[Rfam]
A member of the RNA family "Purine riboswitch aptamer" from Tumebacillus algifaecis, 100 nucleotides long. Clan: Purine riboswitches. The base pairs follow the family's consensus structure, which is taken from published work. Its family is annotated with purine nucleobase biosynthetic process in the Gene Ontology.
RNA sequence: AUGUCGAAAACAUAUAUGUCUCGUAUAUUUCCGGGGAUAUGGCCCGGUAGUCUCUACCAGUUCCCGGAAAGAACUGACUACGAGGACUCGACAUCGUGCA
Numbered sequence: 001a002u003g004u005c006g007a008a009a010a011c012a013u014a015u016a017u018g019u020c021u022c023g024u025a026u027a028u029u030u031c032c033g034g035g036g037a038u039a040u041g042g043c044c045c046g047g048u049a050g051u052c053u054c055u056a057c058c059a060g061u062u063c064c065c066g067g068a069a070a071g072a073a074c075u076g077a078c079u080a081c082g083a084g085g086a087c088u089c090g091a092c093a094u095c096g097u098g099c100a
Stems, first nucleotide, its partner, number of pairs: 019085007029049001031047005058076006